[Rfam]
RNA sequence: UGCCAAGGUAUAUUUACGUCUACAUUGCUGUUGUCAAGUCUGACUGUACCUUUGGUA
Numbered sequence: 001u002g003c004c005a006a007g008g009u010a011u012a013u014u015u016a017c018g019u020c021u022a023c024a025u026u027g028c029u030g031u032u033g034u035c036a037a038g039u040c041u042g043a044c045u046g047u048a049c050c051u052u053u054g055g056u057a
Stems, first nucleotide, its partner, number of pairs: 001057006007050005018044003027034002

Shown here is a 57-nucleotide RNA sequence from Avihepadnavirus anatigruidae, a member of the family "Avian HBV RNA encapsidation signal epsilon". Rfam classes the family as a cis-regulatory element. It is one of the family's seed sequences.